[Rfam]
RNA sequence: AAAUUCCCAAAAUACAAAGUUUAUAUAAUUUCCUGAUUGGAGGAAAGUCUCUACUCGGAGCCGUAACUUCGAACUAUAAGCGACUGGAGGCAUACU
Number, nucleotide and partner (000 for none) at each position: 001a000002a000003a000004u000005u000006c000007c000008c000009a000010a000011a000012a000013u000014a000015c000016a000017a000018a000019g081020u080021u079022u078023a077024u076025a075026u000027a000028a000029u046030u045031u044032c043033c042034u041035g000036a000037u000038u000039g000040g000041a034042g033043g032044a031045a030046a029047g000048u000049c000050u000051c000052u000053a000054c000055u072056c071057g070058g069059a068060g067061c000062c000063g000064u000065a000066a000067c060068u059069u058070c057071g056072a055073a000074c000075u025076a024077u023078a022079a021080g020081c019082g000083a000084c000085u000086g000087g000088a000089g000090g000091c000092a000093u000094a000095c000096u000
RNA: Purine riboswitch aptamer
Organism: Ligilactobacillus equi